[Rfam]
RNA sequence: CUCCAUGUAUCUUUGGAACCUGUCAGCUGUGUCAGUCGCCCUUUCUAGCCGUGGAAGAGCAUAUUCUUGUUUAUUGACAAAGCUGUCACCAUUUCAUUGGUAUCAGAUUCUGACCUGCACAAGUAACAUUC
Numbered sequence: 001c002u003c004c005a006u007g008u009a010u011c012u013u014u015g016g017a018a019c020c021u022g023u024c025a026g027c028u029g030u031g032u033c034a035g036u037c038g039c040c041c042u043u044u045c046u047a048g049c050c051g052u053g054g055a056a057g058a059g060c061a062u063a064u065u066c067u068u069g070u071u072u073a074u075u076g077a078c079a080a081a082g083c084u085g086u087c088a089c090c091a092u093u094u095c096a097u098u099g100g101u102a103u104c105a106g107a108u109u110c111u112g113a114c115c116u117g118c119a120c121a122a123g124u125a126a127c128a129u130u131c
Base pairs, nucleotide, nucleotide: 002055003054004053005052006051007050015041016040020035021034022033024031068128069127070126071125074122075121076120078117079116083106084105085104088101089100090099091098
A member of the RNA family "Small nucleolar RNA SNORA24" from Aotus nancymaae, 131 nucleotides long. The family's consensus secondary structure was predicted with RNAfold. About the family: ACA24 is a member of the H/ACA class of snoRNA that guide the sites of modification of uridines to pseudouridines. The family has 5 seed sequences and 852 matches in Rfam 15.1. Rfam classes the family as an H/ACA-box small nucleolar RNA.